[Rfam]
RNA sequence: ACGUCCUGCCUCGUGAUCGUCUUCUCACCCUUCACCUGGCAGGCGGUACAACGGCAAGGCCCCACGAGGACAUGACUCGUGGGGCCUUGCC
Numbered sequence: 001a002c003g004u005c006c007u008g009c010c011u012c013g014u015g016a017u018c019g020u021c022u023u024c025u026c027a028c029c030c031u032u033c034a035c036c037u038g039g040c041a042g043g044c045g046g047u048a049c050a051a052c053g054g055c056a057a058g059g060c061c062c063c064a065c066g067a068g069g070a071c072a073u074g075a076c077u078c079g080u081g082g083g084g085c086c087u088u089g090c091c
Stems, first nucleotide, its partner, number of pairs: 002045002005043006013035004019029001053091016

Rfam assigns this 91-nucleotide RNA sequence from Streptomyces kasugaensis to the family "sodF sRNA". The match comes from Rfam's covariance-model search (94 bits). The organism belongs to Streptomyces, within Bacteria. By type it is a small RNA. Rfam 15.1 lists 336 matches to the family in 317 species.